[Rfam]
ZMP/ZTP riboswitch aptamer (pfl RNA motif): an 89-nucleotide RNA from Litorihabitans aurantiacus.
Rfam links the family to the GO terms one-carbon metabolic process and regulation of purine nucleotide biosynthetic process.
Taxonomically the source falls in Litorihabitans (Bacteria, Bacillati, Actinomycetes, Beutenbergiaceae).
RNA sequence: UGGCCGCGUCGCGACUGGCGCCGGGUGGGAUCGACCACCGGGGAGCGACGAGGUACGUGAGCACGGGGUCGCCCGCCUGGGUCCCUGCU
Numbered sequence: 001u002g003g004c005c006g007c008g009u010c011g012c013g014a015c016u017g018g019c020g021c022c023g024g025g026u027g028g029g030a031u032c033g034a035c036c037a038c039c040g041g042g043g044a045g046c047g048a049c050g051a052g053g054u055a056c057g058u059g060a061g062c063a064c065g066g067g068g069u070c071g072c073c074c075g076c077c078u079g080g081g082u083c084c085c086u087g088c089u
Stems, first nucleotide, its partner, number of pairs: 003054003007050006015042002017077004025038004066084005